[Rfam]
RNA sequence: AUGGAAGGCUUUUGGCAUGCAUCUCUCCAUGGGUCUUGAAAAGAAGCAAUUUGGCUAUAUGAGGAUGUAGAAGGGAUUCCUCUCACUCCUCAUGAAACAUCAAAUCAGUUUGCCAGGACAUUAACCAAUAGCAUCAGCACCGUCGGGCCGCAUCAUCGGCGGAGGGAUCAAAUUCAACCGAGAUGGGAGGCUUUUGGGUACUGCCCUGGCAAACCGGCAAGUCACAGAACGGCAUCGGCUCGUUUCGUUUCGAGUCUU
Numbered sequence: 001a002u003g004g005a006a007g008g009c010u011u012u013u014g015g016c017a018u019g020c021a022u023c024u025c026u027c028c029a030u031g032g033g034u035c036u037u038g039a040a041a042a043g044a045a046g047c048a049a050u051u052u053g054g055c056u057a058u059a060u061g062a063g064g065a066u067g068u069a070g071a072a073g074g075g076a077u078u079c080c081u082c083u084c085a086c087u088c089c090u091c092a093u094g095a096a097a098c099a100u101c102a103a104a105u106c107a108g109u110u111u112g113c114c115a116g117g118a119c120a121u122u123a124a125c126c127a128a129u130a131g132c133a134u135c136a137g138c139a140c141c142g143u144c145g146g147g148c149c150g151c152a153u154c155a156u157c158g159g160c161g162g163a164g165g166g167a168u169c170a171a172a173u174u175c176a177a178c179c180g181a182g183a184u185g186g187g188a189g190g191c192u193u194u195u196g197g198g199u200a201c202u203g204c205c206c207u208g209g210c211a212a213a214c215c216g217g218c219a220a221g222u223c224a225c226a227g228a229a230c231g232g233c234a235u236c237g238g239c240u241c242g243u244u245u246c247g248u249u250u251c252g253a254g255u256c257u258u
Base pairs, nucleotide, nucleotide: 056094057093058092108214109213110212111211112210113209128202237256238255239254240253241252
A member of the RNA family "Early nodulin 40" from Corymbia citriodora, 258 nucleotides long. The family's consensus secondary structure is taken from published work. By type it is a non-coding RNA gene. It scores 112 bits against the family's covariance model. The family has 35 seed sequences and 341 matches in Rfam 15.1. The organism belongs to Corymbia citriodora, within Eukaryota. For this family Rfam cites "Identification of conserved secondary structures and expansion segments in enod40 RNAs reveals new enod40 homologues in plants" (Gultyaev and Roussis, Nucleic Acids Res, 2007). Gene Ontology term of the family: nodulation.